[Rfam]
RNA sequence: ACACGGAAAGGAGGUGGUCCGAUUCAUGCAUUCUCUUCGGACAAGUGAGGUGGCGGCGGCCUAGCCGUUCGACCUAGGACGCGGCGUGAUCCGCUCGGUCGAGAGGCCGGCUAAUCCAAGCCAACACCCGAACCCGCGAGUGCCAGACCGUCCAUCUGGCCGACGUCAGGGCUCCACCGGAGCCUCGUCGCCAAGCUCGCGGGUUUGUCAUGC
Number, nucleotide and partner (000 for none) at each position: 001a000002c000003a000004c000005g000006g000007a000008a000009a000010g000011g000012a000013g000014g057015u056016g000017g054018u053019c000020c000021g000022a000023u000024u000025c000026a000027u000028g000029c000030a000031u000032u000033c000034u000035c000036u000037u000038c000039g000040g000041a000042c000043a000044a000045g000046u000047g000048a000049g000050g000051u000052g000053g018054c017055g000056g015057c014058g000059g112060c000061c110062u109063a000064g107065c106066c000067g000068u103069u102070c101071g000072a099073c098074c097075u000076a000077g000078g000079a000080c000081g000082c000083g000084g000085c000086g000087u000088g000089a000090u000091c000092c000093g000094c000095u000096c000097g074098g073099u072100c000101g070102a069103g068104a000105g000106g065107c064108c000109g062110g061111c000112u059113a000114a000115u000116c000117c000118a000119a000120g000121c000122c000123a000124a000125c000126a000127c000128c000129c207130g206131a205132a204133c203134c202135c201136g200137c199138g198139a197140g196141u195142g160143c159144c158145a157146g156147a155148c000149c000150g000151u000152c000153c000154a000155u147156c146157u145158g144159g143160c142161c000162g000163a000164c000165g000166u000167c000168a000169g000170g000171g000172c000173u000174c000175c000176a000177c000178c000179g000180g000181a000182g000183c000184c000185u000186c000187g000188u000189c000190g000191c000192c000193a000194a000195g141196c140197u139198c138199g137200c136201g135202g134203g133204u132205u131206u130207g129208u000209c000210a000211u000212g000213c000

Actinobacteria sRNA Ms_IGR-5: a 213-nucleotide RNA from Microlunatus antarcticus. The organism belongs to Microlunatus, within Bacteria. The pairing is the family consensus, mapped onto this sequence. Rfam classes the family as a small RNA.